[Rfam]
RNA sequence: UCCUGACAGUUGCAUGGGGCAACUGACUAACCCAAGACAGGAGAUUGACAUG
Numbered sequence: 001u002c003c004u005g006a007c008a009g010u011u012g013c014a015u016g017g018g019g020c021a022a023c024u025g026a027c028u029a030a031c032c033c034a035a036g037a038c039a040g041g042a043g044a045u046u047g048a049c050a051u052g
Stems, first nucleotide, its partner, number of pairs: 002041004007025005
RNA: Mu-gpT-DE RNA